A member of the RNA family "mir-26 microRNA precursor family" from Bagarius yarrelli, 81 nucleotides long. Rfam 15.1 lists 2,251 matches to the family in 645 species. The family's consensus secondary structure was predicted with RNAalifold.
RNA sequence: CCGCAACCUAGUGCAAGUAAUCAAGAACAGGCCGAGCUUUAGACACAGAGCCUAUCCUGGAUUACUUGAACCAGGUAACAG
Numbered sequence: 001c002c003g004c005a006a007c008c009u010a011g012u013g014c015a016a017g018u019a020a021u022c023a024a025g026a027a028c029a030g031g032c033c034g035a036g037c038u039u040u041a042g043a044c045a046c047a048g049a050g051c052c053u054a055u056c057c058u059g060g061a062u063u064a065c066u067u068g069a070a071c072c073a074g075g076u077a078a079c080a081g
Stems, first nucleotide, its partner, number of pairs: 003079001007075003011071002014068009024058002027055001029053004